[Rfam]
RNA: S4-Bacteroidia ribosomal protein leader
RNA sequence: GACCGUCUUCACCACUUCCUUUCGACGGUCGCGGCUG
Dot-bracket structure: (((((((................))))))).......